[Rfam]
RNA sequence: UGGUAGAUGCACCCUGAUAACUCAACUCCCCCAGCUGACUAACACCACUGGGGUUUUUUUCU
Numbered sequence: 001u002g003g004u005a006g007a008u009g010c011a012c013c014c015u016g017a018u019a020a021c022u023c024a025a026c027u028c029c030c031c032c033a034g035c036u037g038a039c040u041a042a043c044a045c046c047a048c049u050g051g052g053g054u055u056u057u058u059u060u061c062u
Stems, first nucleotide, its partner, number of pairs: 002013003029053006037046001
The family of this 62-nucleotide RNA from Cuspidothrix issatschenkoi is "Nitrogen stress-induced RNA 1". A reference for the family is Ionescu et al. (2010), "Heterocyst-specific transcription of NsiR1, a non-coding RNA encoded in a tandem array of direct repeats in cyanobacteria", J Mol Biol. Pairs were carried over by alignment from the consensus structure. By type it is a small RNA.